[Rfam]
RNA sequence: CGCAUGGUGUUUGACGACAGUUAAUACAACCCGUCAUUUAGCGAUGCGGCCUAUUGAGGU
Numbered sequence: 001c002g003c004a005u006g007g008u009g010u011u012u013g014a015c016g017a018c019a020g021u022u023a024a025u026a027c028a029a030c031c032c033g034u035c036a037u038u039u040a041g042c043g044a045u046g047c048g049g050c051c052u053a054u055u056g057a058g059g060u
Base pairs, nucleotide, nucleotide: 001048002047003046004045005044007042008041012036013035014034015033
Rfam assigns this 60-nucleotide RNA from Saccharobesus litoralis to the family "L31-Gammaproteobacteria ribosomal protein leader". By type it is a cis-regulatory leader. Pairs were carried over by alignment from the consensus structure, which is taken from published work. NCBI's taxonomy places the organism under Bacteria, Pseudomonadati, Pseudomonadota, Alteromonadales, Saccharobesus. For this family Rfam cites "Discovery of 20 novel ribosomal leader candidates in bacteria and archaea" (Eckert and Weinberg, BMC Microbiol, 2020). The match comes from Rfam's covariance-model search (42 bits). Clan: Ribosomal Protein L31 Leader clan.